A member of the RNA family "MIR828 microRNA precursor family" from Arabis alpina, 108 nucleotides long. The match comes from Rfam's covariance-model search (87 bits).
RNA sequence: CUAAUGUUUCUUGCUUAAAUGAGUAUUCCAUGGAAAUAAAAUGGAGUCACAUAUCAUAUGGGUGUGAUUUCGUUUUCAUGAGAUGCUCAUUUGAGCAAGCAAUGUUUG
Numbered sequence: 001c002u003a004a005u006g007u008u009u010c011u012u013g014c015u016u017a018a019a020u021g022a023g024u025a026u027u028c029c030a031u032g033g034a035a036a037u038a039a040a041a042u043g044g045a046g047u048c049a050c051a052u053a054u055c056a057u058a059u060g061g062g063u064g065u066g067a068u069u070u071c072g073u074u075u076u077c078a079u080g081a082g083a084u085g086c087u088c089a090u091u092u093g094a095g096c097a098a099g100c101a102a103u104g105u106u107u108g
Stems, first nucleotide, its partner, number of pairs: 004105005010099018029080002
Its family is annotated with miRNA-mediated post-transcriptional gene silencing and RISC complex in the Gene Ontology.